[Rfam]
RNA sequence: GUAACCGUCCAUAAAUAAGUUAGGCAACUAAGGUAUUUUAAGGUUACCCGUCUAAGUUCUUCGGAACUACGUUAGGAAUGAAAAUAUAGGCACCUUGAGAUGCUUCGGAAGUUUCAAGCUCUGCGGAGAGUCAUUAAACAGUUCUGAUGGAAAGGGCAGUGUGGCUUUCAGAUAAAACCAUUCUAUAACAUUGACUAGGAGACCAUUAC
Number, nucleotide and partner (000 for none) at each position: 001g047002u046003a045004a044005c043006c042007g000008u040009c000010c019011a000012u000013a000014a000015a000016u000017a000018a000019g010020u031021u030022a029023g028024g000025c000026a000027a000028c023029u022030a021031a020032g000033g000034u000035a000036u000037u000038u000039u000040a008041a000042g006043g005044u004045u003046a002047c001048c000049c000050g195051u194052c193053u000054a191055a068056g067057u066058u065059c064060u000061u000062c000063g000064g059065a058066a057067c056068u055069a000070c000071g189072u188073u187074a186075g184076g183077a182078a181079u180080g179081a000082a000083a000084a000085u000086a000087u000088a000089g000090g124091c123092a000093c000094c118095u117096u116097g115098a114099g113100a112101u111102g000103c000104u000105u202106c201107g000108g000109a000110a000111g101112u100113u099114u098115c097116a096117a095118g094119c000120u000121c000122u000123g091124c090125g000126g169127a168128g167129a166130g165131u164132c163133a162134u161135u000136a000137a000138a160139c159140a000141g157142u156143u155144c154145u152146g000147a000148u000149g000150g000151a000152a145153a000154g144155g143156g142157c141158a000159g139160u138161g134162u133163g132164g131165c130166u129167u128168u127169c126170a000171g000172a000173u000174a000175a000176a000177a000178c000179c080180a079181u078182u077183c076184u075185a000186u074187a073188a072189c071190a000191u054192u000193g052194a051195c050196u000197a000198g000199g000200a000201g106202a105203c000204c000205a000206u000207u000208a000209c000
Notes: The family of this 209-nucleotide RNA sequence from Candidatus Thiomargarita nelsonii is "HNH endonuclease-associated RNA and ORF (HEARO) RNA". The family's RNA type in Rfam is non-coding RNA gene. For this family Rfam cites "Exceptional structured noncoding RNAs revealed by bacterial metagenome analysis" (Weinberg et al., Nature, 2009). The family has 139 seed sequences and 952 matches in Rfam 15.1.